[Rfam]
RNA sequence: GGGUGAAAUGACGAGUGAUUGGUUUGCCAACUUGUUCGAUAGCCGAGAUGAUGGCUACCAAUGUAUUAGAUCUAUUUAGUCUUCC
Numbered sequence: 001g002g003g004u005g006a007a008a009u010g011a012c013g014a015g016u017g018a019u020u021g022g023u024u025u026g027c028c029a030a031c032u033u034g035u036u037c038g039a040u041a042g043c044c045g046a047g048a049u050g051a052u053g054g055c056u057a058c059c060a061a062u063g064u065a066u067u068a069g070a071u072c073u074a075u076u077u078a079g080u081c082u083u084c085c
Stems, first nucleotide, its partner, number of pairs: 002084002005081001038058001041056004